[Rfam]
RNA sequence: GCGUGCCGGUGAUGAUUAAAGAACUAAAAAUGGUGAAUUCUGGAUGAACUUGCUCGCGUGCCACUGGGUGCGCGGCCGUGGUGAUCUUACGAAGUUCAUCUGAGGGACGC
Number, nucleotide and partner (000 for none) at each position: 001g000002c109003g108004u107005g000006c105007c104008g000009g000010u000011g000012a000013u000014g000015a000016u000017u000018a000019a000020a000021g000022a000023a000024c000025u000026a000027a000028a000029a000030a000031u000032g000033g000034u000035g000036a000037a000038u000039u000040c000041u000042g000043g000044a000045u000046g000047a000048a000049c000050u000051u000052g000053c000054u000055c000056g000057c000058g000059u000060g000061c000062c000063a000064c000065u000066g000067g000068g000069u000070g000071c000072g000073c000074g000075g000076c000077c000078g000079u000080g000081g000082u000083g000084a000085u000086c000087u000088u000089a000090c000091g000092a000093a000094g000095u000096u000097c000098a000099u000100c000101u000102g000103a000104g007105g006106g000107a004108c003109g002110c000